[Rfam]
Source information: The record is a 90-nucleotide RNA sequence from Salisediminibacterium halotolerans, which matches "c-di-GMP-I riboswitch aptamer" in Rfam. NCBI's taxonomy places the organism under Bacteria, Bacillati, Bacilli, Bacillaceae, Salisediminibacterium.

RNA sequence: CAACGAUAAAGGCAAAACUGCUGAAAAGCAGUGACGCAAAGCUACGGACCUACUGUGACGAUCGGUCACUACGGCCGCCGGGCUGCCGAA
Number, nucleotide and partner (000 for none) at each position: 001c000002a000003a000004c000005g000006a000007u000008a000009a000010a000011g000012g037013c036014a000015a000016a000017a032018c031019u030020g029021c028022u027023g000024a000025a000026a000027a022028g021029c020030a019031g018032u017033g000034a000035c000036g013037c012038a000039a000040a084041g083042c082043u081044a000045c080046g079047g078048a000049c074050c073051u000052a000053c000054u000055g069056u068057g067058a066059c000060g000061a000062u000063c000064g000065g000066u058067c057068a056069c055070u000071a000072c000073g050074g049075c000076c000077g000078c047079c046080g045081g043082g042083c041084u040085g000086c000087c000088g000089a000090a000